[Rfam]
RNA sequence: CCGGUCCGGUUCACGUGCCUCGCGGCACGACCCGGCGCC
Numbered sequence: 001c002c003g004g005u006c007c008g009g010u011u012c013a014c015g016u017g018c019c020u021c022g023c024g025g026c027a028c029g030a031c032c033c034g035g036c037g038c039c
Stems, first nucleotide, its partner, number of pairs: 003039002006035004014029006
Shown here is a 39-nucleotide RNA, a member of the family "L31-Actinobacteria ribosomal protein leader". It is annotated as a cis-regulatory leader. The sequence is in the family's curated seed alignment.